[Rfam]
Nucleotides: 175
Stems, first nucleotide, its partner, number of pairs: 003049004008044001012042004019035005051060002061116005071107005130175005141168002144164002151157002
Number, partner (000 for none) and nucleotide at each position: 001000u002000a003049u004048c005047g006046u007000u008044c009000c010000u011000a012042c013041u014040g015039c016000g017000u018000a019035u020034a021033a022032u023031c024000a025000c026000g027000a028000g029000u030000u031023g032022g033021u034020u035019a036000a037000u038000g039015g040014c041013a042012g043000u044008g045000a046006g047005c048004g049003a050000g051060g052059g053000u054000u055000a056000g057000a058000g059052c060051c061116u062115c063114u064113g065112c066000a067000a068000c069000a070000g071107c072106a073105g074104u075103u076000c077000u078000u079000u080000c081000c082000a083000a084000u085000u086000c087000u088000u089000a090000a091000a092000g093000a094000a095000c096000u097000g098000g099000a100000a101000u102000a103075a104074a105073c106072u107071g108000g109000a110000a111000a112065g113064c114063a115062g116061g117000a118000a119000a120000a121000u122000c123000a124000a125000a126000g127000g128000g129000u130175g131174c132173a133172g134171c135000c136000u137000a138000a139000u140000a141168u142167g143000g144164g145163c146000a147000a148000g149000u150000a151157g152156c153000g154000a155000u156152g157151u158000c159000g160000a161000a162000a163145g164144u165000g166000c167142u168141a169000u170000g171134g172133c173132u174131g175130c
A member of the RNA family "RT-3 RNA", 175 nucleotides long.
Rfam classes the family as a small RNA.
The sequence is in the family's curated seed alignment.